[Rfam]
RNA sequence: CCUGCUAUGCGACUAGCAGUAGCCUAGGGGGACAUGCGUCACUGGUAACGGUGGGGUGUGAAGCUCUCCUGACAAUGCGGCCCCCGAAAGGGUGCCAUCAGGUCGUGAGACAGGAUGGUGGAGGCUCCGAGCAGCAACGGGGUUGAGGCG
Numbered sequence: 001c002c003u004g005c006u007a008u009g010c011g012a013c014u015a016g017c018a019g020u021a022g023c024c025u026a027g028g029g030g031g032a033c034a035u036g037c038g039u040c041a042c043u044g045g046u047a048a049c050g051g052u053g054g055g056g057u058g059u060g061a062a063g064c065u066c067u068c069c070u071g072a073c074a075a076u077g078c079g080g081c082c083c084c085c086g087a088a089a090g091g092g093u094g095c096c097a098u099c100a101g102g103u104c105g106u107g108a109g110a111c112a113g114g115a116u117g118g119u120g121g122a123g124g125c126u127c128c129g130a131g132c133a134g135c136a137a138c139g140g141g142g143u144u145g146a147g148g149c150g
Stems, first nucleotide, its partner, number of pairs: 002019006028069005033060005039054006080095002083092003096120004103110002124143006
About this RNA
The family of this 150-nucleotide RNA sequence from Cupriavidus yeoncheonensis is "Group II catalytic intron D1-D4-7". Group II introns are found in rRNA, tRNA and mRNA of organelles in fungi, plants and protists, and also in mRNA in bacteria. It scores 119 bits against the family's covariance model. Lineage of the source: Bacteria > Pseudomonadati > Pseudomonadota > Burkholderiales > Cupriavidus. For this family Rfam cites "The ins and outs of group II introns" (Bonen and Vogel, Trends Genet, 2001).